Shown here is a 189-nucleotide RNA sequence from Litchfieldia salsa, a member of the family "6S / SsrS RNA". The base pairs follow the family's consensus structure, which is taken from published work. It scores 85 bits against the family's covariance model. It is annotated as a non-coding RNA gene.
[Rfam]
RNA sequence: UAUAAGCUACAUUGUUCGUAAUGAUAAUUAAGUUUUAACCUUUAUGCUGUUAUAGGGAGUUUUACAUUGAUGCAUAAAUGUCAAGCCUUCAUUACGUAGAGGAAGACAGGACUGUAUCUGCAAACACCCACUUUGAGGAGUGGUGGUUUAAAACUUUCUUAUGUGAGUUACGGCAAAUGCGGCUUAUCA
Number, nucleotide and partner (000 for none) at each position: 001u000002a187003u186004a185005a184006g183007c182008u181009a000010c179011a178012u176013u175014g174015u173016u000017c172018g171019u170020a000021a000022u000023g000024a000025u000026a000027a000028u000029u000030a000031a155032g154033u153034u152035u000036u150037a149038a148039c146040c145041u000042u000043u000044a000045u000046g000047c000048u000049g000050u000051u000052a000053u000054a000055g129056g128057g127058a000059g125060u124061u123062u122063u000064a000065c000066a119067u000068u000069g118070a117071u116072g115073c114074a113075u000076a000077a000078a000079u000080g000081u106082c105083a000084a000085g000086c102087c101088u100089u099090c000091a000092u000093u000094a000095c000096g000097u000098a000099g089100a088101g087102g086103a000104a000105g082106a081107c000108a000109g000110g000111a000112c000113u074114g073115u072116a071117u070118c069119u066120g000121c000122a062123a061124a060125c059126a000127c057128c056129c055130a000131c000132u000133u000134u000135g000136a000137g000138g000139a000140g000141u000142g000143g000144u000145g040146g039147u000148u038149u037150a036151a000152a034153a033154c032155u031156u000157u000158c000159u000160u000161a000162u000163g000164u000165g000166a000167g000168u000169u000170a019171c018172g017173g015174c014175a013176a012177a000178u011179g010180c000181g008182g007183c006184u005185u004186a003187u002188c000189a000